Shown here is a 496-nucleotide part of an RNA, a member of the family "Bacterial small subunit ribosomal RNA". It scores 691 bits against the family's covariance model. Its family is annotated with ribosome and structural constituent of ribosome in the Gene Ontology. The family's consensus secondary structure is taken from published work.
RNA sequence: UUUUUUCUGAGUUUAAUCUUAGCUCUGCAUGAACGCUAUCUAUUAGCUUUACACAUGUUAGUCGUAUGAAAUAUUUUUAUUUCAUGGCGAAAGGGUGAGUAAUACUCUUAAAUUUUACCCUAAUGAUAGGUUAAAUACCUUUAAAGAAAUAUUUUCGCAUUUGGAUAAAUUAAGAUUUGGAUUAGGCAGUAGGUGAUUUAAAAGAUUACCUAACCAAUGAUCCAUAAUUGAUCUGAGAGGAUGAUCAAUCACAGUGGCAAUGAAAAAAGGGCCACACAAAAUAAAAUUUGUCAGCAGUGAGGAAUAUUGGAGAAGGAUCGAAAGAUUGCUCCAGCUAAAUAGAAACCCCCUUAAGGGGGAAAAAAUAAAUAAAAUUCGCAUCAAGAAUGCCGAAUUAAUAUACAUUAUGAGUAAUUUUUAUUUUUUUUUAUCCUGACCAAUCUCGUGCCAGCAGUCGCGGUAAUACGAGAAGGAUAAGCGUUAUGCUUCAUAAUUA
Numbered sequence: 001u002u003u004u005u006u007c008u009g010a011g012u013u014u015a016a017u018c019u020u021a022g023c024u025c026u027g028c029a030u031g032a033a034c035g036c037u038a039u040c041u042a043u044u045a046g047c048u049u050u051a052c053a054c055a056u057g058u059u060a061g062u063c064g065u066a067u068g069a070a071a072u073a074u075u076u077u078u079a080u081u082u083c084a085u086g087g088c089g090a091a092a093g094g095g096u097g098a099g100u101a102a103u104a105c106u107c108u109u110a111a112a113u114u115u116u117a118c119c120c121u122a123a124u125g126a127u128a129g130g131u132u133a134a135a136u137a138c139c140u141u142u143a144a145a146g147a148a149a150u151a152u153u154u155u156c157g158c159a160u161u162u163g164g165a166u167a168a169a170u171u172a173a174g175a176u177u178u179g180g181a182u183u184a185g186g187c188a189g190u191a192g193g194u195g196a197u198u199u200a201a202a203a204g205a206u207u208a209c210c211u212a213a214c215c216a217a218u219g220a221u222c223c224a225u226a227a228u229u230g231a232u233c234u235g236a237g238a239g240g241a242u243g244a245u246c247a248a249u250c251a252c253a254g255u256g257g258c259a260a261u262g263a264a265a266a267a268a269g270g271g272c273c274a275c276a277c278a279a280a281a282u283a284a285a286a287u288u289u290g291u292c293a294g295c296a297g298u299g300a301g302g303a304a305u306a307u308u309g310g311a312g313a314a315g316g317a318u319c320g321a322a323a324g325a326u327u328g329c330u331c332c333a334g335c336u337a338a339a340u341a342g343a344a345a346c347c348c349c350c351u352u353a354a355g356g357g358g359g360a361a362a363a364a365a366u367a368a369a370u371a372a373a374a375u376u377c378g379c380a381u382c383a384a385g386a387a388u389g390c391c392g393a394a395u396u397a398a399u400a401u402a403c404a405u406u407a408u409g410a411g412u413a414a415u416u417u418u419u420a421u422u423u424u425u426u427u428u429u430a431u432c433c434u435g436a437c438c439a440a441u442c443u444c445g446u447g448c449c450a451g452c453a454g455u456c457g458c459g460g461u462a463a464u465a466c467g468a469g470a471a472g473g474a475u476a477a478g479c480g481u482u483a484u485g486c487u488u489c490a491u492a493a494u495u496a
Stems, first nucleotide, its partner, number of pairs: 009025005027486004032482006039343006045336002047301001052299003056296003061088003066085003071080003095252003104177001106175006114169002119164002122161004127134001146156003178224003185215002190212008227249004231242004254275005277290004307333001309332003316327004347358004371427001372423004381413001387405003430475005441470005451458002